[Rfam]
RNA sequence: CUUUUUAGGGUGCUUGAAUUCAAAACGGAGGAACCAAUUUUUGGGGCGAAUCUCAAACACCCGUUUGAGAAAGACACCUUCCAGUCUUAGCCCGUCAGCUAACUCCGUCAGCAUUGGGAGGAUUC
Numbered sequence: 001c002u003u004u005u006u007a008g009g010g011u012g013c014u015u016g017a018a019u020u021c022a023a024a025a026c027g028g029a030g031g032a033a034c035c036a037a038u039u040u041u042u043g044g045g046g047c048g049a050a051u052c053u054c055a056a057a058c059a060c061c062c063g064u065u066u067g068a069g070a071a072a073g074a075c076a077c078c079u080u081c082c083a084g085u086c087u088u089a090g091c092c093c094g095u096c097a098g099c100u101a102a103c104u105c106c107g108u109c110a111g112c113a114u115u116g117g118g119a120g121g122a123u124u125c
Stems, first nucleotide, its partner, number of pairs: 011113004019023001025108006035043002044093003052069004072087004
Dot-bracket structure: ..........((((....(...).((((((....((.....))(((.....((((..........))))..((((........))))...))).........)))))).))))............
A member of the RNA family "c-di-AMP riboswitch aptamer (ydaO/yuaA leader)" from Leptolyngbya boryana, 125 nucleotides long.
NCBI's taxonomy places the organism under Bacteria, Bacillati, Cyanophyceae, Leptolyngbyaceae, Leptolyngbya boryana.